[Rfam]
RNA sequence: UGCCGAAUGAGUUUAAGCUCAAAACAUCCUGCAAAUAUACAUACACAAAAUGGGGUGGAAAAAGAAAGGGAAAAAAAAAAAAAAAAAAAAAAAAAGGAAAAGGAAAGAAAUGUAAAAAGUUUCUGUACUUUUUUUUUUUUUUUUUUUUUUCUUUUUUUCUCCCUUUCUUUACAUUCCGCUUUAUCCCUAUGUUGUGUAAUUUUUUCAUAACAGGAAGGAAGGUCUGAGAUGCUGCCAAUAAAGAAGACACAAAGAGGGAAAAGGACCAAACAUGUGGUUACAAUGUUUGUCUAAAAUUUUGUUCCCACAUGGUUUGAUUUUUCUCCCCUUUUUUGUUUCAUUCCUUGCGAAUUCUUCUUUAAACUUUUUUUGAGAAAAAAAAUAUUGAAAAAGUAUUAAUUAGCUACCAGAAAUCCCAAUCAUACAUUUUUGGUCUGUUCCCUUUCUCUUUUUCCUGGAAGGGGAAAGGAGAAGACCAGUGUAUGGUUUUGAAAAAGCUAAUAAGCAAGUAUACGCAAUUGAGUUCGAUUUUUGAGAUUUUUCGAUCGUCCUAAUUGUGUACCUUCCUCUUUCCAUGUAUGUGUGUGUAGUGGGGGAGCUUUUUCCCCCCGUUCCCACCUCCUUGGAACAGAAGAAACGGUCAACACUUUUGGACACUUCCGAGAAAUAACCCAAUUCAGACUACUCGUAAAUUCAUUCGUACAG
Numbered sequence: 001u002g003c004c005g006a007a008u009g010a011g012u013u014u015a016a017g018c019u020c021a022a023a024a025c026a027u028c029c030u031g032c033a034a035a036u037a038u039a040c041a042u043a044c045a046c047a048a049a050a051u052g053g054g055g056u057g058g059a060a061a062a063a064g065a066a067a068g069g070g071a072a073a074a075a076a077a078a079a080a081a082a083a084a085a086a087a088a089a090a091a092a093a094a095a096g097g098a099a100a101a102g103g104a105a106a107g108a109a110a111u112g113u114a115a116a117a118a119g120u121u122u123c124u125g126u127a128c129u130u131u132u133u134u135u136u137u138u139u140u141u142u143u144u145u146u147u148u149u150u151c152u153u154u155u156u157u158u159c160u161c162c163c164u165u166u167c168u169u170u171a172c173a174u175u176c177c178g179c180u181u182u183a184u185c186c187c188u189a190u191g192u193u194g195u196g197u198a199a200u201u202u203u204u205u206c207a208u209a210a211c212a213g214g215a216a217g218g219a220a221g222g223u224c225u226g227a228g229a230u231g232c233u234g235c236c237a238a239u240a241a242a243g244a245a246g247a248c249a250c251a252a253a254g255a256g257g258g259a260a261a262a263g264g265a266c267c268a269a270a271c272a273u274g275u276g277g278u279u280a281c282a283a284u285g286u287u288u289g290u291c292u293a294a295a296a297u298u299u300u301g302u303u304c305c306c307a308c309a310u311g312g313u314u315u316g317a318u319u320u321u322u323c324u325c326c327c328c329u330u331u332u333u334u335g336u337u338u339c340a341u342u343c344c345u346u347g348c349g350a351a352u353u354c355u356u357c358u359u360u361a362a363a364c365u366u367u368u369u370u371u372g373a374g375a376a377a378a379a380a381a382a383u384a385u386u387g388a389a390a391a392a393g394u395a396u397u398a399a400u401u402a403g404c405u406a407c408c409a410g411a412a413a414u415c416c417c418a419a420u421c422a423u424a425c426a427u428u429u430u431u432g433g434u435c436u437g438u439u440c441c442c443u444u445u446c447u448c449u450u451u452u453u454c455c456u457g458g459a460a461g462g463g464g465a466a467a468g469g470a471g472a473a474g475a476c477c478a479g480u481g482u483a484u485g486g487u488u489u490u491g492a493a494a495a496a497g498c499u500a501a502u503a504a505g506c507a508a509g510u511a512u513a514c515g516c517a518a519u520u521g522a523g524u525u526c527g528a529u530u531u532u533u534g535a536g537a538u539u540u541u542u543c544g545a546u547c548g549u550c551c552u553a554a555u556u557g558u559g560u561a562c563c564u565u566c567c568u569c570u571u572u573c574c575a576u577g578u579a580u581g582u583g584u585g586u587g588u589a590g591u592g593g594g595g596g597a598g599c600u601u602u603u604u605c606c607c608c609c610c611g612u613u614c615c616c617a618c619c620u621c622c623u624u625g626g627a628a629c630a631g632a633a634g635a636a637a638c639g640g641u642c643a644a645c646a647c648u649u650u651u652g653g654a655c656a657c658u659u660c661c662g663a664g665a666a667a668u669a670a671c672c673c674a675a676u677u678c679a680g681a682c683u684a685c686u687c688g689u690a691a692a693u694u695c696a697u698u699c700g701u702a703c704a705g
Stems, first nucleotide, its partner, number of pairs: 004700012018536007027215005042198007220683002224680005229512005234506002340352004366381006396504003400501006421485007431478006537668007

Shown here is a 705-nucleotide sequence from Plasmodium knowlesi, a member of the family "Plasmodium RNase_P". It scores 280 bits against the family's covariance model. Its Rfam clan is "RNaseP clan". Its family is annotated with ribonuclease P activity and tRNA processing in the Gene Ontology. By type it is a ribozyme. Pairs were carried over by alignment from the consensus structure, which is taken from published work. A reference for the family is Chakrabarti et al. (2007), "Structural RNAs of known and unknown function identified in malaria parasites by comparative genomics and RNA analysis", RNA.